The family of this 133-nucleotide RNA sequence from Donacobius atricapilla is "Small nucleolar RNA SNORA84". The match comes from Rfam's covariance-model search (96 bits). NCBI's taxonomy places the organism under Eukaryota, Bilateria, Coelurosauria, Telluraves, Donacobius. It is annotated as an H/ACA-box small nucleolar RNA.
RNA sequence: GCCCUGUGGUUGCUGGACACUGCUGUGCCCGUGCAGUGCCCCAGUUGGCAGAAGGGCCCACAGUGACUCUGUGAUUCAUGCGGGGAGUCUGUGAUCCGGGAGCAGCCUCCCCAGCCCGCUCACAGGCACAGCC
Numbered sequence: 001g002c003c004c005u006g007u008g009g010u011u012g013c014u015g016g017a018c019a020c021u022g023c024u025g026u027g028c029c030c031g032u033g034c035a036g037u038g039c040c041c042c043a044g045u046u047g048g049c050a051g052a053a054g055g056g057c058c059c060a061c062a063g064u065g066a067c068u069c070u071g072u073g074a075u076u077c078a079u080g081c082g083g084g085g086a087g088u089c090u091g092u093g094a095u096c097c098g099g100g101a102g103c104a105g106c107c108u109c110c111c112c113a114g115c116c117c118g119c120u121c122a123c124a125g126g127c128a129c130a131g132c133c
Base pairs, nucleotide, nucleotide: 001058003056004055007050008049010047012045013044014043015042016041019037020036021035022034023033069125071123072122073121074120076118080115081114082112083111084110085109087107089105090104091103092102